[Rfam]
RNA sequence: UCGAAAUCAAAAAAAUAAACUUAUAUAUUGUCAUAAUAAGGUUGAUAGUUUCUACCCAAAACCGUAAAUUUUGGACUAUAGGUUUUAAGCUAAUAUUC
Dot-bracket structure: .................((((((((...(((((.........)))))........((((((.......))))))..))))))))..............